[Rfam]
RNA sequence: GAUAUCGAAGGAUUAGCUUAAUUCAUAAUC
Numbered sequence: 001g002a003u004a005u006c007g008a009a010g011g012a013u014u015a016g017c018u019u020a021a022u023u024c025a026u027a028a029u030c
Stems, first nucleotide, its partner, number of pairs: 001030002003027003007024001008019003
Shown here is a 30-nucleotide RNA sequence, a member of the family "S4-Flavobacteria ribosomal protein leader". For this family Rfam cites "Discovery of 20 novel ribosomal leader candidates in bacteria and archaea" (Eckert and Weinberg, BMC Microbiol, 2020). Its Rfam clan is "Ribosomal Protein S4 Leader clan". Rfam's curators put it in the seed alignment. The family's consensus secondary structure is taken from published work.